Rfam assigns this 134-nucleotide RNA sequence from Acidisoma silvae to the family "Alphaproteobacterial sRNA ar35". The literature on the family includes a 2012 paper in RNA Biol by del Val et al., "A survey of sRNA families in alpha-proteobacteria". Lineage of the source: Bacteria > Pseudomonadota > Alphaproteobacteria > Acetobacterales > Acidisoma. Pairs were carried over by alignment from the consensus structure.
RNA sequence: CAACGGCAAGCUUGCUGCCGAGAAUCUGAAGGCUGCUUGAUCGAGACAGCGUUUUGGGUCGGUGACCACGGAUGUACUGGCACUGAUCUUUGAGACGCUUAGAAGAAGGCCGGGUUUUCCCGGCCUUUUUUGUU
Dot-bracket structure: ...((((((.......(((...........)))...))).)))....(((((((..((((..((.(((.........)))))..))))....)))))))..((((((((((((......))))))))))))...
Numbered sequence: 001c002a003a004c005g006g007c008a009a010g011c012u013u014g015c016u017g018c019c020g021a022g023a024a025u026c027u028g029a030a031g032g033c034u035g036c037u038u039g040a041u042c043g044a045g046a047c048a049g050c051g052u053u054u055u056g057g058g059u060c061g062g063u064g065a066c067c068a069c070g071g072a073u074g075u076a077c078u079g080g081c082a083c084u085g086a087u088c089u090u091u092g093a094g095a096c097g098c099u100u101a102g103a104a105g106a107a108g109g110c111c112g113g114g115u116u117u118u119c120c121c122g123g124c125c126u127u128u129u130u131u132g133u134u
Stems, first nucleotide, its partner, number of pairs: 004043003007039003017033003048099007057088004063082002066080003102131012